[Rfam]
RNA sequence: AGCACAACUGAAUAGGCUCCUCAAGGGUGAUCGGCUCAUCCCCUGUUGAAAGGGGGUGUUGCCAUGUCUGCACAUGAAGUCAUUUCGCUCAUGCUCCAAUUCGGGCUGUUUUUAAUCGCGGCUGUUACUUUGGUCCUGACGAUCAUGAAACAUAUGUUGGACAACCAAAAUAAAAAGAAAUAGAUCGCCCUAUGAGUUUGGCCACUCAGGCGAUCUAUUUCGCAUGAAAACCAUAUGAGCCGACACCCUUGAUGGGUAUCCGUUGUGCAACGACCGUGGGUGUUCCAGCACCUGCG
Numbered sequence: 001a002g003c004a005c006a007a008c009u010g011a012a013u014a015g016g017c018u019c020c021u022c023a024a025g026g027g028u029g030a031u032c033g034g035c036u037c038a039u040c041c042c043c044u045g046u047u048g049a050a051a052g053g054g055g056g057u058g059u060u061g062c063c064a065u066g067u068c069u070g071c072a073c074a075u076g077a078a079g080u081c082a083u084u085u086c087g088c089u090c091a092u093g094c095u096c097c098a099a100u101u102c103g104g105g106c107u108g109u110u111u112u113u114a115a116u117c118g119c120g121g122c123u124g125u126u127a128c129u130u131u132g133g134u135c136c137u138g139a140c141g142a143u144c145a146u147g148a149a150a151c152a153u154a155u156g157u158u159g160g161a162c163a164a165c166c167a168a169a170a171u172a173a174a175a176a177g178a179a180a181u182a183g184a185u186c187g188c189c190c191u192a193u194g195a196g197u198u199u200g201g202c203c204a205c206u207c208a209g210g211c212g213a214u215c216u217a218u219u220u221c222g223c224a225u226g227a228a229a230a231c232c233a234u235a236u237g238a239g240c241c242g243a244c245a246c247c248c249u250u251g252a253u254g255g256g257u258a259u260c261c262g263u264u265g266u267g268c269a270a271c272g273a274c275c276g277u278g279g280g281u282g283u284u285c286c287a288g289c290a291c292c293u294g295c296g
Stems, first nucleotide, its partner, number of pairs: 002268004007263002011259001013243001015241004020196004024191004029185001031183001037058002040055005066143003071138002079094002103135002106132001206227003245257003275296009
BsrG: a 296-nucleotide RNA from Tumebacillus flagellatus. Gene Ontology terms of the family: autolysis and toxin activity. Rfam 15.1 lists 614 matches to the family in 343 species. bsrE, bsrG and bsrH pair through intermolecular interactions with antisense sRNAs. A reference for the family is Saito et al. (2008), "Novel small RNA-encoding genes in the intergenic regions of Bacillus subtilis", Gene. The source organism's lineage runs through Bacteria, Bacillota, Bacilli, Caryophanales and Tumebacillus. It scores 90 bits against the family's covariance model. The family's RNA type in Rfam is small RNA. The family's consensus secondary structure was predicted with WAR.